[Rfam]
RNA sequence: AUGCAUCCAGUAAGAAUUGAAUCUACGAAUUCGCCAAUUAUGAGUUGCGAGCUUUAACCGUUCAGCCAUGGAAGC
Numbered sequence: 001a002u003g004c005a006u007c008c009a010g011u012a013a014g015a016a017u018u019g020a021a022u023c024u025a026c027g028a029a030u031u032c033g034c035c036a037a038u039u040a041u042g043a044g045u046u047g048c049g050a051g052c053u054u055u056a057a058c059c060g061u062u063c064a065g066c067c068a069u070g071g072a073a074g075c
Base pairs, nucleotide, nucleotide: 003075004074006072007071008070010026011025012024014022040069041068042067044066045065046064047063049061051059
The family of this 75-nucleotide RNA sequence from Gossypium stocksii is "Plastid-ycf2 5UTR RNA". Plastid ycf2 is a non-coding RNA (ncRNA) recognised in plastids. It was found in the prime untranslated region (5UTR) of ycf2 genes, it presents a tRNA-like motif which suggests it can be involved in mRNA maturation, particularly involved in defining the precise 5' end of the transcript. Rfam classes the family as a cis-regulatory element. It scores 78 bits against the family's covariance model. Rfam 15.1 lists 3,521 matches to the family in 417 species.